[Rfam]
Source information
Shown here is a 92-nucleotide sequence from Sulfobacillus acidophilus, a member of the family "Selenocysteine transfer RNA". A search with the family's covariance model found it, with a score of 73 bits. The base pairs follow the family's consensus structure, which is taken from published work. The family is grouped with related families in Rfam's "tRNA clan". The organism belongs to Sulfobacillus acidophilus, within Bacteria.

RNA sequence: GGGGGUAGGUGGAGGCUUGGUGCCUUCCCCGGACUUCAAAUCCGGUGGCUGGCCUUAGAGGUCAGCGGUGGGUUCGAUUCCCACAUACUCCC
Number, nucleotide and partner (000 for none) at each position: 001g092002g091003g090004g089005g088006u087007a086008g000009g084010u000011g027012g026013a025014g024015g023016c022017u000018u000019g000020g000021u000022g016023c015024c014025u013026u012027c011028c000029c045030c044031g043032g042033a041034c000035u000036u000037c000038a000039a000040a000041u033042c032043c031044g030045g029046u000047g000048g066049c065050u064051g063052g062053c000054c000055u000056u000057a000058g000059a000060g000061g000062u052063c051064a050065g049066c048067g000068g000069u083070g082071g081072g080073u000074u000075c000076g000077a000078u000079u000080c072081c071082c070083a069084c009085a000086u007087a006088c005089u004090c003091c002092c001